[Rfam]
Fluoride riboswitch aptamer (crcB RNA motif): a 62-nucleotide RNA from Hyphomicrobium denitrificans. The family's consensus secondary structure is taken from published work.
RNA sequence: GCCGUCGAUGGGGAUGGGGUUCCCCGAUAACCGCCGCUAUGGCUGAUGACUCCUGGCGAGGC
Numbered sequence: 001g002c003c004g005u006c007g008a009u010g011g012g013g014a015u016g017g018g019g020u021u022c023c024c025c026g027a028u029a030a031c032c033g034c035c036g037c038u039a040u041g042g043c044u045g046a047u048g049a050c051u052c053c054u055g056g057c058g059a060g061g062c
Stems, first nucleotide, its partner, number of pairs: 010025004016053006033043003